[Rfam]
This 82-nucleotide sequence from Fukomys damarensis belongs to the Rfam family "small Cajal body-specific RNA 18". Rfam describes the family as follows. scaRNAs are a specific class of small nuclear RNAs which localise to the Cajal bodies and guide the modification of RNA polymerase II transcribed spliceosomal RNAs U1, U2, U4, U5 and U12. This C/D box domain U91 (also known as U4-8) was identified by Darzacq and is predicted to guide the 2'O-ribose methylation of U4 snRNA C8. For this family Rfam cites "Cajal body-specific small nuclear RNAs: a novel class of 2'-O-methylation and pseudouridylation guide RNAs" (Darzacq et al., EMBO J, 2002). The family has 20 seed sequences and 406 matches in Rfam 15.1.
RNA sequence: UGGCUGAUGAUGACUAGAAGACUGCACAAUCUGAGUUCUGGGAACCAGGUGAUGGAGCAAGGUGUACAACAGAUUGAGGCCA
Numbered sequence: 001u002g003g004c005u006g007a008u009g010a011u012g013a014c015u016a017g018a019a020g021a022c023u024g025c026a027c028a029a030u031c032u033g034a035g036u037u038c039u040g041g042g043a044a045c046c047a048g049g050u051g052a053u054g055g056a057g058c059a060a061g062g063u064g065u066a067c068a069a070c071a072g073a074u075u076g077a078g079g080c081c082a
Base pairs, nucleotide, nucleotide: 002081003080004079005078038048039047040046041045
Rfam classes the family as a small Cajal body RNA.
Its family is annotated with nucleolus, Cajal body and RNA processing in the Gene Ontology.